[Rfam]
RNA sequence: UCAAAACUAGGGCAAACCGCACGAAAGUGCGAGACGCAAAGCCAAAGGGUCUAAUUUCCUUACCGGAAUAUGAUAGCCUAGCUGCAAAA
Numbered sequence: 001u002c003a004a005a006a007c008u009a010g011g012g013c014a015a016a017c018c019g020c021a022c023g024a025a026a027g028u029g030c031g032a033g034a035c036g037c038a039a040a041g042c043c044a045a046a047g048g049g050u051c052u053a054a055u056u057u058c059c060u061u062a063c064c065g066g067a068a069u070a071u072g073a074u075a076g077c078c079u080a081g082c083u084g085c086a087a088a089a
Base pairs, nucleotide, nucleotide: 012037013036018031019030020029021028022027040083041082042081046079047078048077049074050073051072056068057067058066059065
The record is an 89-nucleotide RNA from Desulfosporosinus sp. I2, which matches "c-di-GMP-I riboswitch aptamer" in Rfam. NCBI's taxonomy places the organism under Bacteria, Bacillota, Clostridia, Eubacteriales, Desulfosporosinus. The match comes from Rfam's covariance-model search (69 bits).